Small nucleolar RNA U83B: a 93-nucleotide RNA sequence from Ornithorhynchus anatinus. Rfam links the family to the GO terms nucleolus and RNA processing. From the family's description: U83B belongs to the C/D family of snoRNAs. U83B like U83A has no documented RNA target and they share the same host gene with the C/D box snoRNA U43 (RPL3). N.B. U83A/B/C have no sequence similarity with the U83 snoRNA that was cloned by Jady and Kiss (2000).
RNA sequence: ACCGUUCAGUGAUGAGUCGCUGGAAGAAGCGCCGGGCACGGCGCCCGAAACGAAUGAGGAUACUCUCCUUGCUGCCUUCCUUCUGAGAACGGU
Numbered sequence: 001a002c003c004g005u006u007c008a009g010u011g012a013u014g015a016g017u018c019g020c021u022g023g024a025a026g027a028a029g030c031g032c033c034g035g036g037c038a039c040g041g042c043g044c045c046c047g048a049a050a051c052g053a054a055u056g057a058g059g060a061u062a063c064u065c066u067c068c069u070u071g072c073u074g075c076c077u078u079c080c081u082u083c084u085g086a087g088a089a090c091g092g093u
Stems, first nucleotide, its partner, number of pairs: 001093005
Dot-bracket structure: (((((...................................................................................)))))